A member of the RNA family "Small nucleolar RNA SNORD14" from Papaver somniferum, 125 nucleotides long. About the family: U14 small nucleolar RNA (U14 snoRNA) is required for early cleavages of eukaryotic precursor rRNAs. In yeasts, this molecule possess a stem-loop region (known as the Y-domain) which is essential for function. A similar structure, but with a different consensus sequence, is found in plants, but is absent in vertebrates. Rfam links the family to the GO terms RNA processing and nucleolus. Rfam 15.1 lists 4,559 matches to the family in 936 species. Rfam classes the family as a C/D-box small nucleolar RNA. On this family, see Samarsky et al., Nucleic Acids Res 1996: "An essential domain in Saccharomyces cerevisiae U14 snoRNA is absent in vertebrates, but conserved in other yeasts". The match comes from Rfam's covariance-model search (80 bits). The base pairs follow the family's consensus structure, which was predicted with PFOLD.

RNA sequence: UGUUUAUGAUGAUAAAUCUAAGGCUUGUUUCUCAAGAACAUUCGCAGUUGCCGACUGAGAGCUUUCGCCUUUCGCAGGGCUUGAGAGCUAGUGCUGCUUUAUUCCUUCCUUGGAUGUCUGAAACA
Numbered sequence: 001u002g003u004u005u006a007u008g009a010u011g012a013u014a015a016a017u018c019u020a021a022g023g024c025u026u027g028u029u030u031c032u033c034a035a036g037a038a039c040a041u042u043c044g045c046a047g048u049u050g051c052c053g054a055c056u057g058a059g060a061g062c063u064u065u066c067g068c069c070u071u072u073c074g075c076a077g078g079g080c081u082u083g084a085g086a087g088c089u090a091g092u093g094c095u096g097c098u099u100u101a102u103u104c105c106u107u108c109c110u111u112g113g114a115u116g117u118c119u120g121a122a123a124c125a
Base pairs, nucleotide, nucleotide: 001125002124003123004122061088062087063086064085065084066083